[Rfam]
RNA sequence: GAAUGAUUUAGGCAAAACCGUCGUGAGGCGGUGACGCAAAGCUAUCGGGACUUUUUUCGAAAAGUCAGCCACGCUGCAAUA
Numbered sequence: 001g002a003a004u005g006a007u008u009u010a011g012g013c014a015a016a017a018c019c020g021u022c023g024u025g026a027g028g029c030g031g032u033g034a035c036g037c038a039a040a041g042c043u044a045u046c047g048g049g050a051c052u053u054u055u056u057u058c059g060a061a062a063a064g065u066c067a068g069c070c071a072c073g074c075u076g077c078a079a080u081a
Stems, first nucleotide, its partner, number of pairs: 012037002017032006040075003045071001047070002049066007

A member of the RNA family "c-di-GMP-I riboswitch aptamer" from Vescimonas fastidiosa, 81 nucleotides long. The match comes from Rfam's covariance-model search (57 bits). NCBI's taxonomy places the organism under Bacteria, Bacillati, Clostridia, Eubacteriales, Vescimonas. Its Rfam clan is "c-di-GMP_I riboswitch clan".